Overview:
The family of this 80-nucleotide RNA sequence from Triplophysa rosa is "mir-181 microRNA precursor family". Rfam 15.1 lists 3,490 matches to the family in 650 species. The source organism's lineage runs through Eukaryota, Bilateria, Vertebrata, Otomorpha and Triplophysa. Pairs were carried over by alignment from the consensus structure, which was predicted with PFOLD.
RNA sequence: CAGCUGCGAUAUACAUUCAUUGUUGUCGUUGGGUUUAACACGAGAGCGACUCACUGACCAAUGAGUGCAAACUGCAGUAG
Numbered sequence: 001c002a003g004c005u006g007c008g009a010u011a012u013a014c015a016u017u018c019a020u021u022g023u024u025g026u027c028g029u030u031g032g033g034u035u036u037a038a039c040a041c042g043a044g045a046g047c048g049a050c051u052c053a054c055u056g057a058c059c060a061a062u063g064a065g066u067g068c069a070a071a072c073u074g075c076a077g078u079a080g
Base pairs, nucleotide, nucleotide: 001080003078004077005076006075007074008073014067015066016065017064018063019062020061021060022059025058026057027056028055030053031052033050034049035048